[Rfam]
RNA sequence: UGGCGCCCAACGUGAGAGCUCGAGUACGAGGAAUACUGUGAGGGACGCCGUCAGGAUCGGCCGGCACAGGAGAACUAAGAAACCUGGAGGAAAGAGCGUCGUGGGAGCCUGCCAUGGACUCACGCUCCGGUAAGUGGACGGCGAAUAUGGGACAGGAAAUCAGCCAGCAUGAGUUGUUUAUAGAGAGUUUAAGUAAGGCUAUAAAGGCGCGAGGAGUAAAGGUGAAAAUAAAAUAAUUGUGUAAAUAUUUUGAUUAUAUUCAGGAUGUCUGCCCUU
Numbered sequence: 001u002g003g004c005g006c007c008c009a010a011c012g013u014g015a016g017a018g019c020u021c022g023a024g025u026a027c028g029a030g031g032a033a034u035a036c037u038g039u040g041a042g043g044g045a046c047g048c049c050g051u052c053a054g055g056a057u058c059g060g061c062c063g064g065c066a067c068a069g070g071a072g073a074a075c076u077a078a079g080a081a082a083c084c085u086g087g088a089g090g091a092a093a094g095a096g097c098g099u100c101g102u103g104g105g106a107g108c109c110u111g112c113c114a115u116g117g118a119c120u121c122a123c124g125c126u127c128c129g130g131u132a133a134g135u136g137g138a139c140g141g142c143g144a145a146u147a148u149g150g151g152a153c154a155g156g157a158a159a160u161c162a163g164c165c166a167g168c169a170u171g172a173g174u175u176g177u178u179u180a181u182a183g184a185g186a187g188u189u190u191a192a193g194u195a196a197g198g199c200u201a202u203a204a205a206g207g208c209g210c211g212a213g214g215a216g217u218a219a220a221g222g223u224g225a226a227a228a229u230a231a232a233a234u235a236a237u238u239g240u241g242u243a244a245a246u247a248u249u250u251u252g253a254u255u256a257u258a259u260u261c262a263g264g265a266u267g268u269c270u271g272c273c274c275u276u
Stems, first nucleotide, its partner, number of pairs: 007031002012027003037047003082131003088126002094121003100116005137153001142149002160203001163199003210252005216246002220238002223235002262275003266271001
Dot-bracket structure: ......((...(((..........)))..)).....(((.....)))..................................(((...((....(((...(((((.......)))))..)))...))..))).....(....((....))...)......(..(((...............................)))...)......(((((.((..((.((.........)).))......)).))))).........(((.(....).))).
RNA: Mason-Pfizer monkey virus packaging signal
Organism: Callithrix jacchus